[Rfam]
RNA sequence: AACGUUAUGUGUAACUGGCGAAACGCGGAGACCACCGCGGGGGAGCACAUAAUGAAAUCAUGUCGAUCGCCUGGGCAGAGGUA
Numbered sequence: 001a002a003c004g005u006u007a008u009g010u011g012u013a014a015c016u017g018g019c020g021a022a023a024c025g026c027g028g029a030g031a032c033c034a035c036c037g038c039g040g041g042g043g044a045g046c047a048c049a050u051a052a053u054g055a056a057a058u059c060a061u062g063u064c065g066a067u068c069g070c071c072u073g074g075g076c077a078g079a080g081g082u083a
Base pairs, nucleotide, nucleotide: 003054004053005052006051007050008049009048010047011046012045015042016041017071018070019069020068021067025038026037027036028035061077062076063075064074